[Rfam]
RNA sequence: AUGCACUUCGUAUCAUAGGCUUUCUAAUUCAUUUGGAGUAGCCUUCAGCGAGGGUGCAUAAAUGAAAGCUGUUUAUUCAGCAGUGGCCAGACAACCACGAGAUGAAUCCACUGGUUAACAGCUUUUGAUGCCGUUUGCCUACUAAAUUCUUCUUACAUUU
Number, nucleotide and partner (000 for none) at each position: 001a000002u058003g057004c056005a055006c054007u000008u000009c050010g049011u048012a000013u000014c000015a000016u000017a044018g043019g042020c041021u040022u037023u036024c035025u000026a000027a000028u000029u000030c000031a000032u000033u000034u000035g024036g023037a022038g000039u000040a021041g020042c019043c018044u017045u000046c000047a000048g011049c010050g009051a000052g000053g000054g006055u005056g004057c003058a002059u000060a000061a000062a000063u000064g000065a000066a000067a000068g000069c000070u000071g000072u000073u000074u000075a000076u000077u000078c000079a000080g000081c000082a000083g000084u000085g000086g000087c000088c000089a000090g000091a000092c000093a000094a000095c000096c000097a000098c000099g154100a153101g152102a151103u000104g149105a148106a147107u000108c000109c000110a000111c000112u000113g000114g000115u000116u137117a136118a135119c130120a000121g000122c000123u000124u000125u000126u000127g000128a000129u000130g119131c000132c000133g000134u000135u118136u117137g116138c000139c000140u000141a000142c000143u000144a000145a000146a000147u106148u105149c104150u000151u102152c101153u100154u099155a000156c000157a000158u000159u000160u000